[Rfam]
A member of the RNA family "Vault RNA" from Anguilla anguilla, 94 nucleotides long. This family of RNAs are found as part of the enigmatic vault ribonucleoprotein complex. The complex consists of a major vault protein (MVP), two minor vault proteins (VPARP and TEP1), and several small untranslated RNA molecules. It has been suggested that the vault complex is involved in drug resistance. Pairs were carried over by alignment from the consensus structure, which is taken from published work.
RNA sequence: GCGUUGGUUUAGCUCAUGGGUUACUUCCGAAACUCACUACUAUCGUGGCUCUUGGGCUGUGAAGUUCGAACCCCGGGCGCGGUCCAGCGUUUUA
Number, nucleotide and partner (000 for none) at each position: 001g000002c089003g088004u087005u086006g085007g084008u000009u000010u000011a000012g078013c077014u076015c075016a000017u000018g073019g072020g071021u000022u000023a000024c000025u070026u069027c068028c000029g066030a000031a000032a000033c000034u000035c000036a000037c000038u000039a000040c000041u000042a000043u000044c000045g000046u000047g000048g000049c000050u000051c000052u000053u000054g000055g000056g000057c000058u000059g000060u000061g000062a000063a000064g000065u000066u029067c000068g027069a026070a025071c020072c019073c018074c000075g015076g014077g013078c012079g000080c000081g000082g000083u000084c007085c006086a005087g004088c003089g002090u000091u000092u000093u000094a000